The family of this 112-nucleotide RNA sequence from Arcanobacterium sp. S3PF19 is "SAM riboswitch aptamer (S box leader)".

RNA sequence: UGUUCAUCAAGAGCAGCCGAGAGACUUGGCUCAGUGACGCUGCAGCCACCUACGGAAGCGGAAACCGAAAGGCAGCCGCCCGUAAAGGUGCUAAGGCCAAGACCGAUGAGAU
Numbered sequence: 001u002g003u004u005c006a007u008c009a010a011g012a013g014c015a016g017c018c019g020a021g022a023g024a025c026u027u028g029g030c031u032c033a034g035u036g037a038c039g040c041u042g043c044a045g046c047c048a049c050c051u052a053c054g055g056a057a058g059c060g061g062a063a064a065c066c067g068a069a070a071g072g073c074a075g076c077c078g079c080c081c082g083u084a085a086a087g088g089u090g091c092u093a094a095g096g097c098c099a100a101g102a103c104c105g106a107u108g109a110g111a112u
Stems, first nucleotide, its partner, number of pairs: 003110006013043005021032003026100004044092003049088002051084004096104001
Rfam's curators write: The SAM riboswitch is found upstream of a number of genes which code for proteins involved in methionine or cysteine biosynthesis in Gram-positive bacteria.
Pairs were carried over by alignment from the consensus structure, which is taken from published work.
It scores 54 bits against the family's covariance model.
Gene Ontology term of the family: regulation of gene expression.